[Rfam]
RNA sequence: UCGGCGGGCCGUGACUGGCGCUGAGGUGGAGUACCACCGGGGAGCGGUCCGACGAACGGGUCUUUGCCGCGCGCCUGGGCGAUUGUG
Numbered sequence: 001u002c003g004g005c006g007g008g009c010c011g012u013g014a015c016u017g018g019c020g021c022u023g024a025g026g027u028g029g030a031g032u033a034c035c036a037c038c039g040g041g042g043a044g045c046g047g048u049c050c051g052a053c054g055a056a057c058g059g060g061u062c063u064u065u066g067c068c069g070c071g072c073g074c075c076u077g078g079g080c081g082a083u084u085g086u087g
Base pairs, nucleotide, nucleotide: 003053005051006050007049008048009047010046011045012044015041016040017075018074019073020072021071026037027036028035029034064082065081066080067079068078